[Rfam]
RNA sequence: CUUGGCAUUUGGCUUAUUGUCCACAAUGGCAUUACCUACUGCGUGCAAUAGGUGAGUCUUACCUAGGCCAGUGCCACCAUA
Numbered sequence: 001c002u003u004g005g006c007a008u009u010u011g012g013c014u015u016a017u018u019g020u021c022c023a024c025a026a027u028g029g030c031a032u033u034a035c036c037u038a039c040u041g042c043g044u045g046c047a048a049u050a051g052g053u054g055a056g057u058c059u060u061a062c063c064u065a066g067g068c069c070a071g072u073g074c075c076a077c078c079a080u081a
Base pairs, nucleotide, nucleotide: 005042006041007040009038011036012035016032017031020029021028051078052077053076054075056074057073061072062071
About this RNA:
A member of the RNA family "antisense RNA of dnaA mRNA" from Vibrio ishigakensis, 81 nucleotides long. A reference for the family is Dadzie et al. (2013), "Identification and characterization of a cis-encoded antisense RNA associated with the replication process of Salmonella enterica serovar Typhi", PLoS One. Lineage of the source: Bacteria > Pseudomonadati > Gammaproteobacteria > Vibrionales > Vibrio. The base pairs follow the family's consensus structure, which was predicted with RNAfold.